[Rfam]
RNA: U11 spliceosomal RNA
RNA sequence: AAAAAGGGUGCUCGUCUUUGGCGCUUUCCGUAUUUUACGAGAAACAGUGCGGACGCAUUGUGCCGUUUGCCCAUUCCUACGCUCUUCGUGGGCGGGGGCGCGCGUCGAAUUGCCGUCUUCGAUGGGUGCAAACGCGCAUAGUGGGGUAUGGCUUUGCAUAUCCAGUGCGUAAUUUUUGUGUUAGGGGCAUAGGUAGCUGUACGUUUGGGACGGCCGGAUAGCGGAGUUCUCUGCGUGCCGGCAGUCCGUACGCUGUGCCCCA
Numbered sequence: 001a002a003a004a005a006g007g008g009u010g011c012u013c014g015u016c017u018u019u020g021g022c023g024c025u026u027u028c029c030g031u032a033u034u035u036u037a038c039g040a041g042a043a044a045c046a047g048u049g050c051g052g053a054c055g056c057a058u059u060g061u062g063c064c065g066u067u068u069g070c071c072c073a074u075u076c077c078u079a080c081g082c083u084c085u086u087c088g089u090g091g092g093c094g095g096g097g098g099c100g101c102g103c104g105u106c107g108a109a110u111u112g113c114c115g116u117c118u119u120c121g122a123u124g125g126g127u128g129c130a131a132a133c134g135c136g137c138a139u140a141g142u143g144g145g146g147u148a149u150g151g152c153u154u155u156g157c158a159u160a161u162c163c164a165g166u167g168c169g170u171a172a173u174u175u176u177u178g179u180g181u182u183a184g185g186g187g188c189a190u191a192g193g194u195a196g197c198u199g200u201a202c203g204u205u206u207g208g209g210a211c212g213g214c215c216g217g218a219u220a221g222c223g224g225a226g227u228u229c230u231c232u233g234c235g236u237g238c239c240g241g242c243a244g245u246c247c248g249u250a251c252g253c254u255g256u257g258c259c260c261c262a
Base pairs, nucleotide, nucleotide: 008168009167010166011165012164013055014054015053016052017051056143057142058141059140060139061138062137063136064134065133066132067131068130069129070128144163145162146161147160148159149158150157185260186259187258188257193256194255195254196253197252199251200250201249202248